Shown here is a 126-nucleotide sequence from Lactococcus lactis, a member of the family "Ribosomal protein L10 leader". It is annotated as a cis-regulatory leader. The base pairs follow the family's consensus structure, which was predicted with CMfinder. NCBI's taxonomy places the organism under Bacteria, Bacillota, Bacilli, Streptococcaceae, Lactococcus lactis subsp. lactis. Rfam links the family to the GO term regulation of gene expression. This family is a putative r-protein leader autoregulatory structure found in B. subtilis and other low-GC Gram-positive bacteria.
RNA sequence: CGGUUCUAAAAGAACUGACCGAAGACAGUAGGGGACGAAAGUCAUAAACUUCCUACCGAGGACAAAUAUCAAAAUGAUAAUUGAACUCUCUAUGUCUUUUGUGUGUAGAGAUUUUUUAUUUCUACA
Numbered sequence: 001c002g003g004u005u006c007u008a009a010a011a012g013a014a015c016u017g018a019c020c021g022a023a024g025a026c027a028g029u030a031g032g033g034g035a036c037g038a039a040a041g042u043c044a045u046a047a048a049c050u051u052c053c054u055a056c057c058g059a060g061g062a063c064a065a066a067u068a069u070c071a072a073a074a075u076g077a078u079a080a081u082u083g084a085a086c087u088c089u090c091u092a093u094g095u096c097u098u099u100u101g102u103g104u105g106u107a108g109a110g111a112u113u114u115u116u117u118a119u120u121u122c123u124a125c126a
Stems, first nucleotide, its partner, number of pairs: 028056006034043003087111009